[Rfam]
RNA sequence: UACAGUCAGCAGGGGGACUGCUUGCAGUUGAGAAGGAUAAAACCUGACCCUUAGAACCUGACGGUUAAUACCGUGGUAGGGAGCAACUACACUGGCAGU
Numbered sequence: 001u002a003c004a005g006u007c008a009g010c011a012g013g014g015g016g017a018c019u020g021c022u023u024g025c026a027g028u029u030g031a032g033a034a035g036g037a038u039a040a041a042a043c044c045u046g047a048c049c050c051u052u053a054g055a056a057c058c059u060g061a062c063g064g065u066u067a068a069u070a071c072c073g074u075g076g077u078a079g080g081g082a083g084c085a086a087c088u089a090c091a092c093u094g095g096c097a098g099u
Stems, first nucleotide, its partner, number of pairs: 009084002011051004016045001017028004035044002057080004061074004